Group II catalytic intron D1-D4-2: a 117-nucleotide sequence from Gelidibacter salicanalis. About the family: Group II introns are found in rRNA, tRNA and mRNA of organelles in fungi, plants and protists, and also in mRNA in bacteria. A search with the family's covariance model found it, with a score of 64 bits. The base pairs follow the family's consensus structure. NCBI's taxonomy places the organism under Bacteria, Bacteroidota, Flavobacteriales, Flavobacteriaceae, Gelidibacter. For this family Rfam cites "The ins and outs of group II introns" (Bonen and Vogel, Trends Genet, 2001). Rfam links the family to the GO term Group II intron splicing.
[Rfam]
RNA sequence: GAGGUUAGGCCCAUCAGGGUCGUAGUAUAGGCGAUGGCUGUAAACCGCCUAAAAGUGCCGUUAUAAAUAGCAAUGGUGCUGUACGUUUAGUAGAAUCCAAUUUAUCAGGUUGGAAGU
Numbered sequence: 001g002a003g004g005u006u007a008g009g010c011c012c013a014u015c016a017g018g019g020u021c022g023u024a025g026u027a028u029a030g031g032c033g034a035u036g037g038c039u040g041u042a043a044a045c046c047g048c049c050u051a052a053a054a055g056u057g058c059c060g061u062u063a064u065a066a067a068u069a070g071c072a073a074u075g076g077u078g079c080u081g082u083a084c085g086u087u088u089a090g091u092a093g094a095a096u097c098c099a100a101u102u103u104a105u106c107a108g109g110u111u112g113g114a115a116g117u
Stems, first nucleotide, its partner, number of pairs: 001015002004012001016041001018039004023034001025032002046116001049090005054080002057077003061073002064070001096114006